[Rfam]
RNA sequence: GAACAUGUUGGGUGGAGAUGCACUAUAAAGUAAGAGUGUAGUUUAUAGAAAUAGAUGCCAUAGCAUCCGCCUUACUAAAUAGAUUCCUCCUCCUGCUACUAUAUGUUUUUGUAACGACAAAAACAGGAGACGCGGUCGCGGAUUAACUAUAAUUUGUUAGUCACGCUAGACACGAAGGUGGUAUACCACUUUAGCGCGCCCCAAACAAUGGCCUUGAGCGUUGUGUGCCCAAGUGUUUCUGUUCGCAUGGAAACAGA
Number, nucleotide and partner (000 for none) at each position: 001g000002a000003a000004c000005a000006u000007g000008u000009u000010g000011g000012g000013u000014g090015g089016a088017g087018a000019u000020g000021c000022a000023c082024u081025a080026u079027a000028a000029a076030g075031u074032a073033a000034g000035a000036g070037u069038g068039u000040a046041g000042u000043u000044u000045a000046u040047a000048g000049a000050a000051a000052u000053a000054g067055a066056u065057g064058c000059c000060a000061u000062a000063g000064c057065a056066u055067c054068c038069g037070c036071c000072u000073u032074a031075c030076u029077a000078a000079a026080u025081a024082g023083a000084u000085u000086c000087c017088u016089c015090c014091u128092c127093c126094u125095g124096c000097u000098a000099c000100u000101a000102u000103a000104u000105g000106u000107u000108u000109u000110u000111g000112u000113a000114a000115c000116g000117a000118c000119a000120a000121a000122a000123a000124c095125a094126g093127g092128a091129g000130a000131c198132g197133c196134g195135g171136u170137c169138g166139c165140g164141g000142a000143u000144u000145a158146a157147c156148u000149a000150u000151a000152a000153u000154u000155u000156g147157u146158u145159a000160g000161u000162c000163a000164c140165g139166c138167u000168a000169g137170a136171c135172a000173c000174g000175a192176a191177g190178g189179u188180g187181g186182u000183a000184u000185a000186c181187c180188a179189c178190u177191u176192u175193a000194g000195c134196g133197c132198g131199c000200c000201c000202c000203a000204a000205a226206c225207a224208a000209u223210g222211g221212c220213c000214u000215u000216g000217a000218g000219c000220g212221u211222u210223g209224u207225g206226u205227g000228c000229c000230c000231a000232a000233g000234u000235g254236u253237u252238u251239c250240u249241g248242u000243u000244c000245g000246c000247a000248u241249g240250g239251a238252a237253a236254c235255a000256g000257a000

rne-II RNA: a 257-nucleotide sequence from Entomomonas asaccharolytica. The family's consensus secondary structure is taken from published work. The organism belongs to Entomomonas, within Bacteria. The family's RNA type in Rfam is cis-regulatory element. A search with the family's covariance model found it, with a score of 112 bits.